The record is a 363-nucleotide RNA from Blastochloris viridis, which matches "Alphaproteobacteria transfer-messenger RNA" in Rfam. Rfam classes the family as a non-coding RNA gene. On this family, see Felden et al., RNA 1997: "Probing the structure of the Escherichia coli 10Sa RNA (tmRNA)". The match comes from Rfam's covariance-model search (284 bits). The family's consensus secondary structure is taken from published work.

RNA sequence: ACCCUUCCUUUGCCGGCCGUCCGCCCCUAUAUUCAUGAGGCCGGCGCAAGCCGGAUAUGGCGAUAAAUGGCUAUCGGAAUAAACCUUUCGGACCCGGGGGCGGUACCCGGCGCCUCCACCCCAGCCGGUUCUGAACCGAACAGGCCGGCUGCGGCGGGGGCGAAAUAGGAUCGACGAGGGCGUAAAGGGUGUGCUUUUGCCCGGCAUGGUUCCGCCGUUAUCGGGCCAUUAGUGUAGUUGCGAAUGACAACUAUGCGCCGGUUGCUCAGGCCGCGUGACGCGGUUUGAAAGACCACUUAAAGCCCUAGUGCCUUGCGCGUACUAGGCGGGGUUCGGAGGCACCUGGCAACAGAAGCCUCCACU
Numbered sequence: 001a002c003c004c005u006u007c008c009u010u011u012g013c014c015g016g017c018c019g020u021c022c023g024c025c026c027c028u029a030u031a032u033u034c035a036u037g038a039g040g041c042c043g044g045c046g047c048a049a050g051c052c053g054g055a056u057a058u059g060g061c062g063a064u065a066a067a068u069g070g071c072u073a074u075c076g077g078a079a080u081a082a083a084c085c086u087u088u089c090g091g092a093c094c095c096g097g098g099g100g101c102g103g104u105a106c107c108c109g110g111c112g113c114c115u116c117c118a119c120c121c122c123a124g125c126c127g128g129u130u131c132u133g134a135a136c137c138g139a140a141c142a143g144g145c146c147g148g149c150u151g152c153g154g155c156g157g158g159g160g161c162g163a164a165a166u167a168g169g170a171u172c173g174a175c176g177a178g179g180g181c182g183u184a185a186a187g188g189g190u191g192u193g194c195u196u197u198u199g200c201c202c203g204g205c206a207u208g209g210u211u212c213c214g215c216c217g218u219u220a221u222c223g224g225g226c227c228a229u230u231a232g233u234g235u236a237g238u239u240g241c242g243a244a245u246g247a248c249a250a251c252u253a254u255g256c257g258c259c260g261g262u263u264g265c266u267c268a269g270g271c272c273g274c275g276u277g278a279c280g281c282g283g284u285u286u287g288a289a290a291g292a293c294c295a296c297u298u299a300a301a302g303c304c305c306u307a308g309u310g311c312c313u314u315g316c317g318c319g320u321a322c323u324a325g326g327c328g329g330g331g332u333u334c335g336g337a338g339g340c341a342c343c344u345g346g347c348a349a350c351a352g353a354a355g356c357c358u359c360c361a362c363u
Base pairs, nucleotide, nucleotide: 041054042053043052044051059201060200061199062198063197069194072191073190074189075188084180085179086178088177089176090175094110095109096108097107098106111162112161113160114159115158116157117156202217203216204215205214207228208227209226211225212224213223329344330343331342332341335360336359337358338357339356340355